This 86-nucleotide RNA sequence from Morus notabilis belongs to the Rfam family "Small nucleolar RNA R11/Z151".

[Rfam]
RNA sequence: GGGCUUCUGAUGAUAAUUUAAUUAUCUUAACAGAUUUCAAUGAGAUUUUACUCUCAAUGAUCUGAUUGUUACACACACUGAAGCCC
Numbered sequence: 001g002g003g004c005u006u007c008u009g010a011u012g013a014u015a016a017u018u019u020a021a022u023u024a025u026c027u028u029a030a031c032a033g034a035u036u037u038c039a040a041u042g043a044g045a046u047u048u049u050a051c052u053c054u055c056a057a058u059g060a061u062c063u064g065a066u067u068g069u070u071a072c073a074c075a076c077a078c079u080g081a082a083g084c085c086c
Stems, first nucleotide, its partner, number of pairs: 001086005

The family's RNA type in Rfam is C/D-box small nucleolar RNA. The match comes from Rfam's covariance-model search (78 bits). Gene Ontology terms of the family: nucleolus and RNA processing. The base pairs follow the family's consensus structure, which was predicted with PFOLD.